Rfam assigns this 139-nucleotide RNA sequence from Trichinella zimbabwensis to the family "U12 minor spliceosomal RNA". On this family, see Tarn and Steitz, Trends Biochem Sci 1997: "Pre-mRNA splicing: the discovery of a new spliceosome doubles the challenge". Clan: U2 clan.
RNA sequence: GUGCUUGAACUCUUAGAGUAAGGAAAUUAAAUACAGGAAGUGAUAUUCCUGCUUAUCACACAAAUUUUUGCGAGGGUAAAGGUCUUCCGCGGCGUUUAUCCUACUUUUGAUAAAACGCUGGCAGUGUGAGAUCUGCCCU
Numbered sequence: 001g002u003g004c005u006u007g008a009a010c011u012c013u014u015a016g017a018g019u020a021a022g023g024a025a026a027u028u029a030a031a032u033a034c035a036g037g038a039a040g041u042g043a044u045a046u047u048c049c050u051g052c053u054u055a056u057c058a059c060a061c062a063a064a065u066u067u068u069u070g071c072g073a074g075g076g077u078a079a080a081g082g083u084c085u086u087c088c089g090c091g092g093c094g095u096u097u098a099u100c101c102u103a104c105u106u107u108u109g110a111u112a113a114a115a116c117g118c119u120g121g122c123a124g125u126g127u128g129a130g131a132u133c134u135g136c137c138c139u
Base pairs, nucleotide, nucleotide: 004023005022006021008019034051035050036049037048038047039046073139074138075137076136077135080134081133082132083131084130085129086128089122090121091119092118093117094116095115096113097112098111099110100109